[Rfam]
RNA sequence: AUCACCUUUAAUUCAAUCCGAGAGGUUGGGAAGGUGAGUCGCCAUUCGAAGAGACAGGAUGCAACACUGUCUGUUUGAGUACAGGCUCCCUUCCCUUGUGGAAUGGAGUCUUUUUUUA
Numbered sequence: 001a002u003c004a005c006c007u008u009u010a011a012u013u014c015a016a017u018c019c020g021a022g023a024g025g026u027u028g029g030g031a032a033g034g035u036g037a038g039u040c041g042c043c044a045u046u047c048g049a050a051g052a053g054a055c056a057g058g059a060u061g062c063a064a065c066a067c068u069g070u071c072u073g074u075u076u077g078a079g080u081a082c083a084g085g086c087u088c089c090c091u092u093c094c095c096u097u098g099u100g101g102a103a104u105g106g107a108g109u110c111u112u113u114u115u116u117u118a
Stems, first nucleotide, its partner, number of pairs: 003036007013029006046078005052072006081113001083111007091103004